Record summary:
The record is a 76-nucleotide sequence from Cucurbita maxima, which matches "Small nucleolar RNA SNORD18" in Rfam. Rfam links the family to the GO terms nucleolus and RNA processing. A search with the family's covariance model found it, with a score of 45 bits.
[Rfam]
RNA sequence: GAGAUAUGAUGAGCAACAUUGGUCCGUGUUUCUGAAUAAAUUGUGACGAAUAUCCAUAUAAGCACACUCUGAUCUC
Numbered sequence: 001g002a003g004a005u006a007u008g009a010u011g012a013g014c015a016a017c018a019u020u021g022g023u024c025c026g027u028g029u030u031u032c033u034g035a036a037u038a039a040a041u042u043g044u045g046a047c048g049a050a051u052a053u054c055c056a057u058a059u060a061a062g063c064a065c066a067c068u069c070u071g072a073u074c075u076c
Base pairs, nucleotide, nucleotide: 001076002075003074004073